[Rfam]
RNA sequence: UGGAAGAAUCCGGUUAAGCUCAGGAGGGAUAGCGCCAUGGACGCCUACUCUAUUCGCUUGCUGUUAUAUGAGUUGUUAAUUUGGCGCUAUCCAUCCUGAGUUCCAUCGGUUCUUCUU
Numbered sequence: 001u002g003g004a005a006g007a008a009u010c011c012g013g014u015u016a017a018g019c020u021c022a023g024g025a026g027g028g029a030u031a032g033c034g035c036c037a038u039g040g041a042c043g044c045c046u047a048c049u050c051u052a053u054u055c056g057c058u059u060g061c062u063g064u065u066a067u068a069u070g071a072g073u074u075g076u077u078a079a080u081u082u083g084g085c086g087c088u089a090u091c092c093a094u095c096c097u098g099a100g101u102u103c104c105a106u107c108g109g110u111u112c113u114u115c116u117u
Base pairs, nucleotide, nucleotide: 010108017102018101019100020099021098022097023096024095025094027092028091029090030089031088032087033086034085035084036083
RNA: MIR390 microRNA precursor family